[Rfam]
RNA sequence: AGGUAAAUAUAACUCCUAGCCUUUGCGCCUAAGUGAGUCAUGAUGAGCUAUACGUGGUUUCUAGCCGUGGCGAUGACCACCAGGGUGCAGGGUAUAAAUGUCGGCAUCUCCCGUAUUUGGAAAGGUAUUACUGUUUCACAAUG
Numbered sequence: 001a002g003g004u005a006a007a008u009a010u011a012a013c014u015c016c017u018a019g020c021c022u023u024u025g026c027g028c029c030u031a032a033g034u035g036a037g038u039c040a041u042g043a044u045g046a047g048c049u050a051u052a053c054g055u056g057g058u059u060u061c062u063a064g065c066c067g068u069g070g071c072g073a074u075g076a077c078c079a080c081c082a083g084g085g086u087g088c089a090g091g092g093u094a095u096a097a098a099u100g101u102c103g104g105c106a107u108c109u110c111c112c113g114u115a116u117u118u119g120g121a122a123a124g125g126u127a128u129u130a131c132u133g134u135u136u137c138a139c140a141a142u143g
Stems, first nucleotide, its partner, number of pairs: 003137001006134001011129002015125002019065002025059001027058003033053003067080004083109006091102004110120002

Shown here is a 143-nucleotide RNA from Sodalis-like endosymbiont of Proechinophthirus fluctus, a member of the family "Molybdenum/Tungsten riboswitch aptamer (Moco RNA motif)". Gene Ontology terms of the family: regulation of gene expression, molybdenum ion binding and tungstate binding. A search with the family's covariance model found it, with a score of 56 bits. Pairs were carried over by alignment from the consensus structure, which is taken from published work. NCBI's taxonomy places the organism under Bacteria, Pseudomonadati, Gammaproteobacteria, Bruguierivoracaceae, Sodalis.